[Rfam]
RNA sequence: UAGCGAAGGUCCCAGCAGAGGGUAGUGCCUCUACAAUGAGAACUCUCUAACAUAUUAAUUAUCCUUCGUAGAUUGAGAUUAUUUUACACCGUUUCGUAGGAUGGCCAAACACACUGAUUUUUGGUGCAUCUUGAAUAUUCGGACACAUUUAU
Numbered sequence: 001u002a003g004c005g006a007a008g009g010u011c012c013c014a015g016c017a018g019a020g021g022g023u024a025g026u027g028c029c030u031c032u033a034c035a036a037u038g039a040g041a042a043c044u045c046u047c048u049a050a051c052a053u054a055u056u057a058a059u060u061a062u063c064c065u066u067c068g069u070a071g072a073u074u075g076a077g078a079u080u081a082u083u084u085u086a087c088a089c090c091g092u093u094u095c096g097u098a099g100g101a102u103g104g105c106c107a108a109a110c111a112c113a114c115u116g117a118u119u120u121u122u123g124g125u126g127c128a129u130c131u132u133g134a135a136u137a138u139u140c141g142g143a144c145a146c147a148u149u150u151a152u
Stems, first nucleotide, its partner, number of pairs: 003069007011020001013018001025047001027045001029040003089142003094137001100130002103127001105124005
RNA: Small nucleolar RNA snoR145
Organism: Aquilegia coerulea